[Rfam]
RNA sequence: GCGCCUCGCCUCGUGAUCGUCUUCUCAACCUUCACGGGGGCGGGUGGAGAAAGGAAGGCCCCCGCGAGGACGUGACUCGCGGGGGCCUUCC
Numbered sequence: 001g002c003g004c005c006u007c008g009c010c011u012c013g014u015g016a017u018c019g020u021c022u023u024c025u026c027a028a029c030c031u032u033c034a035c036g037g038g039g040g041c042g043g044g045u046g047g048a049g050a051a052a053g054g055a056a057g058g059c060c061c062c063c064g065c066g067a068g069g070a071c072g073u074g075a076c077u078c079g080c081g082g083g084g085g086c087c088u089u090c091c
Stems, first nucleotide, its partner, number of pairs: 002046002005044007013035004019029002053091016
The record is a 91-nucleotide RNA sequence from Streptomyces griseorubiginosus, which matches "sodF sRNA" in Rfam.
By type it is a small RNA.
The base pairs follow the family's consensus structure.
The organism belongs to Streptomyces, within Bacteria.
The match comes from Rfam's covariance-model search (93 bits).
On this family, see Kim et al., Nucleic Acids Res 2014: "Inverse regulation of Fe- and Ni-containing SOD genes by a Fur family regulator Nur through small RNA processed from 3'UTR of the sodF mRNA".